[Rfam]
RNA sequence: UCAGCCGGCCGGGCGGCCGCUCCGCGCGUCGGAGAGGAAAGUCCGGGCUCCAUGGAAACACGGUGCCGGAUAACGUCCGGCAGGGGCGACCCUAGGGAAAGUGCCACAGAAAGCAGACCGCCCCGCAGCGCGGGGUAAGGGUGAAAGGGUGCGGUAAGAGCGCACCGCGGACGCAGUAAUGCGGACGGCACGGCAAACCCCACCAGGAGCAAAACCGAAUAGGGACGACAGGCGUUCGCGCCAGGCCUGUUUCCAGGCCCGUCGUCCGGGUUGGUUGCUUGAGGCGGUCAGCGAUGACCGUCCCAGAGGAAUGGCCGCCACGUCCGGGGCGCGAGCCUCGGGCCCUACAGAACCCGGCUUACAGGCCGGCUGACAAC
Numbered sequence: 001u002c003a004g005c006c007g008g009c010c011g012g013g014c015g016g017c018c019g020c021u022c023c024g025c026g027c028g029u030c031g032g033a034g035a036g037g038a039a040a041g042u043c044c045g046g047g048c049u050c051c052a053u054g055g056a057a058a059c060a061c062g063g064u065g066c067c068g069g070a071u072a073a074c075g076u077c078c079g080g081c082a083g084g085g086g087c088g089a090c091c092c093u094a095g096g097g098a099a100a101g102u103g104c105c106a107c108a109g110a111a112a113g114c115a116g117a118c119c120g121c122c123c124c125g126c127a128g129c130g131c132g133g134g135g136u137a138a139g140g141g142u143g144a145a146a147g148g149g150u151g152c153g154g155u156a157a158g159a160g161c162g163c164a165c166c167g168c169g170g171a172c173g174c175a176g177u178a179a180u181g182c183g184g185a186c187g188g189c190a191c192g193g194c195a196a197a198c199c200c201c202a203c204c205a206g207g208a209g210c211a212a213a214a215c216c217g218a219a220u221a222g223g224g225a226c227g228a229c230a231g232g233c234g235u236u237c238g239c240g241c242c243a244g245g246c247c248u249g250u251u252u253c254c255a256g257g258c259c260c261g262u263c264g265u266c267c268g269g270g271u272u273g274g275u276u277g278c279u280u281g282a283g284g285c286g287g288u289c290a291g292c293g294a295u296g297a298c299c300g301u302c303c304c305a306g307a308g309g310a311a312u313g314g315c316c317g318c319c320a321c322g323u324c325c326g327g328g329g330c331g332c333g334a335g336c337c338u339c340g341g342g343c344c345c346u347a348c349a350g351a352a353c354c355c356g357g358c359u360u361a362c363a364g365g366c367c368g369g370c371u372g373a374c375a376a377c
Base pairs, nucleotide, nucleotide: 001373002372003371004370005369006368007367008366009365010364011362012319013318014317015316016315017314018313020034021033022032023031024030039360040359041358043357044356045355046354047353048209049208050207051206057252058251062204063203064202065201066080067079068078069077070076081095082093083092084091085090096200097199101198102197103194104193105192118140119139120136121135122134123133124132125131126130148166149165150164151163152162153161167189168187169186172183173182174181175180213276214275215274216273223267224266225265226264227263228262244259245258246257247256248255283302284301285300286299287298288297289296290295
Dot-bracket structure: ((((((((((((((((((.(((((.....)))))....[[[.[[[[[((((.....[[...(((((((((.....)))))(((((....)))).)((...(((((............(((((((((...)))))))..)).......((((((.......))))))(((..((((....))))..)).)..)))..)))))))).))))...((((......((((((...............(((((..]]..)))))..)))))).....))))......((((((((....))))))))..........))))))).................................]]]]]]]].).))))))))))....
This 377-nucleotide RNA sequence from Microvirga thermotolerans belongs to the Rfam family "Bacterial RNase P class A". Taxonomically the source falls in Microvirga (Bacteria, Pseudomonadati, Hyphomicrobiales, Methylobacteriaceae).